[Rfam]
RNA: PrrF RNA
RNA sequence: UUGACUUAUCAAAUGAUAAUUAUUAUUAUUUAAUCAUCUGGUCGAGAGAUCAGCCGGUAAGCUGGGACCCCAGGUCACAAGGUUUCAGGUUAUCUCCUCAUCAAGGCUAAUCACGGUUUUAAACCCAGCUUCGGCUGGGUUUUUUUUGU
Numbered sequence: 001u002u003g004a005c006u007u008a009u010c011a012a013a014u015g016a017u018a019a020u021u022a023u024u025a026u027u028a029u030u031u032a033a034u035c036a037u038c039u040g041g042u043c044g045a046g047a048g049a050u051c052a053g054c055c056g057g058u059a060a061g062c063u064g065g066g067a068c069c070c071c072a073g074g075u076c077a078c079a080a081g082g083u084u085u086c087a088g089g090u091u092a093u094c095u096c097c098u099c100a101u102c103a104a105g106g107c108u109a110a111u112c113a114c115g116g117u118u119u120u121a122a123a124c125c126c127a128g129c130u131u132c133g134g135c136u137g138g139g140u141u142u143u144u145u146u147u148g149u
Stems, first nucleotide, its partner, number of pairs: 035056001038053006062088007096106003122141008